[Rfam]
RNA: c-di-GMP-I riboswitch aptamer
RNA sequence: GUUCCGAAAGGGCAAAGCUAAUGAAAGUUAGUGACGCAAAACCAUAGGUCUAAGGCGUGAAGCUAGGAUAGCUAGGUUACCGAG
Dot-bracket structure: ...........((...((((((....))))))...))..((((.((((((....((.....))...)))..)))))))......